TPP riboswitch aptamer (THI element): a 95-nucleotide RNA sequence from Micrococcus terreus. A search with the family's covariance model found it, with a score of 76 bits. From the family's description: Vitamin B(1) in its active form thiamin pyrophosphate (TPP) is an essential coenzyme that is synthesised by coupling of pyrimidine and thiazole moieties in bacteria. The previously detected thiamin-regulatory element, thi box was extended, resulting in a new, highly conserved RNA secondary structure, the THI element, which is widely distributed in eubacteria and also occurs in some archaea. Analysis of operon structures identified a large number of new candidate thiamin-regulated genes, mostly transporters, in various prokaryotic organisms. Pairs were carried over by alignment from the consensus structure, which is taken from published work. Lineage of the source: Bacteria > Bacillati > Micrococcales > Micrococcaceae > Micrococcus.
RNA sequence: GCCUCGGACACGGGGUGCGCCGGUCCGGCGCUGAGAACAGACCCGUGGAACCUGAUCUAGUUCGUACUAGCGAAGGGAUGUCCUCGUGGCUUCUU
Numbered sequence: 001g002c003c004u005c006g007g008a009c010a011c012g013g014g015g016u017g018c019g020c021c022g023g024u025c026c027g028g029c030g031c032u033g034a035g036a037a038c039a040g041a042c043c044c045g046u047g048g049a050a051c052c053u054g055a056u057c058u059a060g061u062u063c064g065u066a067c068u069a070g071c072g073a074a075g076g077g078a079u080g081u082c083c084u085c086g087u088g089g090c091u092u093c094u095u
Stems, first nucleotide, its partner, number of pairs: 006083005011045004016039001017031005051076003057070004